[Rfam]
RNA sequence: CAUCAUCGAAGCGGCGCACUCCUCCUCCCAGUGCCGCCCGAUAGGGCUGAUGACACCUCCUCCUCCCAGUCGUCAGCCAGGUUUAAGAGCCCGGCGCAUCCUCCUCCCGCGCCGGGCUUUUACG
Numbered sequence: 001c002a003u004c005a006u007c008g009a010a011g012c013g014g015c016g017c018a019c020u021c022c023u024c025c026u027c028c029c030a031g032u033g034c035c036g037c038c039c040g041a042u043a044g045g046g047c048u049g050a051u052g053a054c055a056c057c058u059c060c061u062c063c064u065c066c067c068a069g070u071c072g073u074c075a076g077c078c079a080g081g082u083u084u085a086a087g088a089g090c091c092c093g094g095c096g097c098a099u100c101c102u103c104c105u106c107c108c109g110c111g112c113c114g115g116g117c118u119u120u121u122a123c124g
Base pairs, nucleotide, nucleotide: 007040008039011037012036013035014034015033016032017031045078046077047076048075049074050073051072052071053070054069087119088118089117090116091115092114093113094112095111096110097109

A member of the RNA family "Alphaproteobacterial ar14" from Rhizobium album, 124 nucleotides long. The source organism's lineage runs through Bacteria, Pseudomonadati, Pseudomonadota, Rhizobiaceae and Rhizobium. On this family, see del Val et al., RNA Biol 2012: "A survey of sRNA families in alpha-proteobacteria". Its family is annotated with biological process involved in symbiotic interaction in the Gene Ontology. The family has 118 seed sequences and 784 matches in Rfam 15.1. Rfam classes the family as a small RNA.